[Rfam]
RNA: Small nucleolar RNA SNORA9
Organism: Macaca mulatta
RNA sequence: UAGCAAGCCUCCAGCAUGCUUGGGUCUGUGGUGACCCUAUGCAUUCCUUCAGUGCUUGCUAGAACAGUUUUGAAACGGUUUGAGACCUUGCCCUUCUAUCCAGAGCAAGGUUAUAAAAAUUUCAGACAAUG
Numbered sequence: 001u002a003g004c005a006a007g008c009c010u011c012c013a014g015c016a017u018g019c020u021u022g023g024g025u026c027u028g029u030g031g032u033g034a035c036c037c038u039a040u041g042c043a044u045u046c047c048u049u050c051a052g053u054g055c056u057u058g059c060u061a062g063a064a065c066a067g068u069u070u071u072g073a074a075a076c077g078g079u080u081u082g083a084g085a086c087c088u089u090g091c092c093c094u095u096c097u098a099u100c101c102a103g104a105g106c107a108a109g110g111u112u113a114u115a116a117a118a119a120u121u122u123c124a125g126a127c128a129a130u131g
Stems, first nucleotide, its partner, number of pairs: 003059006017043003022037005071124005086110006093103002